MIR390 microRNA precursor family: a 111-nucleotide RNA from Striga asiatica. Lineage of the source: Eukaryota > Spermatophyta > Gunneridae > Buchnereae > Striga. Pairs were carried over by alignment from the consensus structure, which was predicted with WAR. Gene Ontology terms of the family: RISC complex and miRNA-mediated post-transcriptional gene silencing.

[Rfam]
RNA sequence: GUGGAAAACCCGUUAAGCUCAGGAGGGAUAGCACCGUUUGAUAAUUUGUGUGAUUCCGUUACACUUAGAUUUCUAUGGCGCUAUCCAUCCUGAGUUUCAUGGUUUUUUCGU
Numbered sequence: 001g002u003g004g005a006a007a008a009c010c011c012g013u014u015a016a017g018c019u020c021a022g023g024a025g026g027g028a029u030a031g032c033a034c035c036g037u038u039u040g041a042u043a044a045u046u047u048g049u050g051u052g053a054u055u056c057c058g059u060u061a062c063a064c065u066u067a068g069a070u071u072u073c074u075a076u077g078g079c080g081c082u083a084u085c086c087a088u089c090c091u092g093a094g095u096u097u098c099a100u101g102g103u104u105u106u107u108u109c110g111u
Stems, first nucleotide, its partner, number of pairs: 010102001016096009026086007034078002